[Rfam]
RNA sequence: CAUAUAUUUCAUGAUGGUAUAAUCCAAACCCCUAACAGGAGGGAUUGUGCCUGAUAUUCAUAUG
Numbered sequence: 001c002a003u004a005u006a007u008u009u010c011a012u013g014a015u016g017g018u019a020u021a022a023u024c025c026a027a028a029c030c031c032c033u034a035a036c037a038g039g040a041g042g043g044a045u046u047g048u049g050c051c052u053g054a055u056a057u058u059c060a061u062a063u064g
Stems, first nucleotide, its partner, number of pairs: 001064005016051010031039003
Overview: Rfam assigns this 64-nucleotide RNA sequence from Mytilus edulis to the family "Selenocysteine insertion sequence 1". The family's consensus secondary structure is taken from published work. NCBI's taxonomy places the organism under Eukaryota, Spiralia, Bivalvia, Pteriomorphia, Mytilus.